[Rfam]
RNA sequence: GGGGGGUAACGGAGGCUAGGGAACUCGGCAAAUUAGCCCCGUAACUUCGGGAUAAGGGGUGCCUACCUUAGUACUGACCGUGCUAAGGUAGGUCGCAGUAACAAGGGGGAUCUGACUGUUUAAUAAAAACAUAGGUUUCCGCAAGCCCGAAAGGGUGUGAACGGAAGCUAAAUCCUGGCCACUGGCGGCAGGUUAAACCUGGGUCCAACCGGGCGAAGCCCCGCUGAAGGCCGGGGGUAACUCUGACCCUCUCAAGGUAGCCAAAUGCCUUGCCGGGCAAGUUCCGGCGCGCAUGAAUGGAUCAACGAGAUCCCCGCUGUCCCAGCCUCUGGCCCCAUGAACGCCCAGAGUAGGUUCACAGUCCUGCAA
Dot-bracket structure: ((((.....((((((((.(((..............(((((....(....).....)))))((((((((((((((.....))))))))))))))(...).......(((((((((..(((.........)))..(((((((((..((((....))))..)..))))))))..((((.(((..(((((((..(((....(((((......)))))....))))))))..)))))((((((.......))))))(...)...............((((((.....))))))..........))))...)).)))))))....))).)))))))).)))).............(((((........)))))..